[Rfam]
The record is a 67-nucleotide RNA sequence from Cnephaeus nilssonii, which matches "mir-9256 microRNA precursor family" in Rfam.
RNA sequence: GUAUACACUGAGUGGCCAGAUUAUUAUGAUCUCUGAAUGCAUAAUAAUUAGGCCAUUCAGUGUGUGU
Numbered sequence: 001g002u003a004u005a006c007a008c009u010g011a012g013u014g015g016c017c018a019g020a021u022u023a024u025u026a027u028g029a030u031c032u033c034u035g036a037a038u039g040c041a042u043a044a045u046a047a048u049u050a051g052g053c054c055a056u057u058c059a060g061u062g063u064g065u066g067u
Base pairs, nucleotide, nucleotide: 004064005063006062007061008060009059010058011057012056013055014054015053016052017051019049020048021047022046023045024044025043026042027041028040